[Rfam]
RNA sequence: UAACAACUGAAAGGAGGUGAUCCAGUGUCUCAUUGUCAUCAACCGCUGUCGCGGGGACUGCGUGGCCUGGUCUCAUCCCAUGAGGGGUUCGGUUCCGCGUGAGUUUUCGCAACGCCUAGCCCUGUUACCGGGGCUGCGGUUCGGCAAUGGAAGGGCUGCCCGCAAGGGCAGCCCU
Numbered sequence: 001u002a003a004c005a006a007c008u009g010a011a012a013g014g015a016g017g018u019g020a021u022c023c024a025g026u027g028u029c030u031c032a033u034u035g036u037c038a039u040c041a042a043c044c045g046c047u048g049u050c051g052c053g054g055g056g057a058c059u060g061c062g063u064g065g066c067c068u069g070g071u072c073u074c075a076u077c078c079c080a081u082g083a084g085g086g087g088u089u090c091g092g093u094u095c096c097g098c099g100u101g102a103g104u105u106u107u108c109g110c111a112a113c114g115c116c117u118a119g120c121c122c123u124g125u126u127a128c129c130g131g132g133g134c135u136g137c138g139g140u141u142c143g144g145c146a147a148u149g150g151a152a153g154g155g156c157u158g159c160c161c162g163c164a165a166g167g168g169c170a171g172c173c174c175u
Base pairs, nucleotide, nucleotide: 016023017022031149032148033147034146035145036144037143044064047062048061049060051058065071066070073092074091075088077087078086079085095139096138097137098136099135152175153174154173155172156171157170158169159168160167161166
The family of this 175-nucleotide RNA from Allobosea sp. Root483D1 is "caulobacter sRNA CC2171". The organism belongs to Allobosea, within Bacteria. Rfam classes the family as a small RNA.